[Rfam]
RNA sequence: AAAAUGCGAUGACGCGGCAGAUUGCUUACCUCGCGUAAGGGAACUGGCGUGGAGAAAUUGUCCGGGUCGAGAAUCUGGGCGACAA
Number, nucleotide and partner (000 for none) at each position: 001a000002a000003a000004a000005u000006g000007c000008g000009a000010u000011g000012a000013c000014g050015c049016g048017g000018c046019a045020g044021a000022u000023u000024g000025c039026u038027u037028a036029c035030c000031u000032c000033g000034c000035g029036u028037a027038a026039g025040g000041g000042a000043a000044c020045u019046g018047g000048c016049g015050u014051g000052g000053a000054g000055a000056a000057a000058u000059u084060g083061u082062c081063c000064g000065g080066g000067u078068c077069g000070a000071g000072a000073a000074u000075c000076u000077g068078g067079g000080c065081g062082a061083c060084a059085a000
The family of this 85-nucleotide RNA sequence from Megamonas hypermegale is "S10-Clostridia ribosomal protein leader". The base pairs follow the family's consensus structure, which is taken from published work. By type it is a cis-regulatory leader. The literature on the family includes a 2020 paper in BMC Microbiol by Eckert and Weinberg, "Discovery of 20 novel ribosomal leader candidates in bacteria and archaea".